[Rfam]
Overview: This 202-nucleotide RNA sequence from Olea europaea belongs to the Rfam family "MIR168 microRNA precursor family". The family's consensus secondary structure was predicted with WAR. Rfam links the family to the GO terms miRNA-mediated post-transcriptional gene silencing and RISC complex. Rfam 15.1 lists 518 matches to the family in 218 species. A reference for the family is Reinhart et al. (2002), "MicroRNAs in plants", Genes Dev.
RNA sequence: AUUGCGGCGGUCUCUAAUUCGCUUGGUGCAGGUCGGGAAUUUUCUUCGCCGGCGAUGUCGUUUCUCGUGAAUAUUGCGCUCCAAAAUCGGGCAUAUGCAUAACUGUAUGAAUAACAAUAUAUGAACUUAUUAAUUGAUGUCGUUAUUUGGCGAAAUAUCAGGUUCCCGCCUUGCACUAAGCGAAUUAGAGACCGCGGUGAAU
Numbered sequence: 001a002u003u004g005c006g007g008c009g010g011u012c013u014c015u016a017a018u019u020c021g022c023u024u025g026g027u028g029c030a031g032g033u034c035g036g037g038a039a040u041u042u043u044c045u046u047c048g049c050c051g052g053c054g055a056u057g058u059c060g061u062u063u064c065u066c067g068u069g070a071a072u073a074u075u076g077c078g079c080u081c082c083a084a085a086a087u088c089g090g091g092c093a094u095a096u097g098c099a100u101a102a103c104u105g106u107a108u109g110a111a112u113a114a115c116a117a118u119a120u121a122u123g124a125a126c127u128u129a130u131u132a133a134u135u136g137a138u139g140u141c142g143u144u145a146u147u148u149g150g151c152g153a154a155a156u157a158u159c160a161g162g163u164u165c166c167c168g169c170c171u172u173g174c175a176c177u178a179a180g181c182g183a184a185u186u187a188g189a190g191a192c193c194g195c196g197g198u199g200a201a202u
Base pairs, nucleotide, nucleotide: 013189014188017185018184019183020182023179024178025177026176027175028174029173030172031171032170034168035167036166037165038164040162041161